Notes
Shown here is a 97-nucleotide part of an RNA from Halorutilus salinus, a member of the family "Archaeal large subunit ribosomal RNA". For this family Rfam cites "Crystal structure of the ribosome at 5.5 A resolution" (Yusupov et al., Science, 2001). A search with the family's covariance model found it, with a score of 2791 bits. Gene Ontology terms of the family: ribosome and structural constituent of ribosome.
[Rfam]
RNA sequence: GACAGAGCACGCAAGGAGCUUCGCACCAAAAGAACCGUCCGCAAGGACGCAGUAUGAGGUGCGUCGCCGGUGUUCUGUCGUACGUUAUGAAAAACGA
Numbered sequence: 001g002a003c004a005g006a007g008c009a010c011g012c013a014a015g016g017a018g019c020u021u022c023g024c025a026c027c028a029a030a031a032g033a034a035c036c037g038u039c040c041g042c043a044a045g046g047a048c049g050c051a052g053u054a055u056g057a058g059g060u061g062c063g064u065c066g067c068c069g070g071u072g073u074u075c076u077g078u079c080g081u082a083c084g085u086u087a088u089g090a091a092a093a094a095c096g097a
Stems, first nucleotide, its partner, number of pairs: 001079010015068002022063006031055001036049005083096003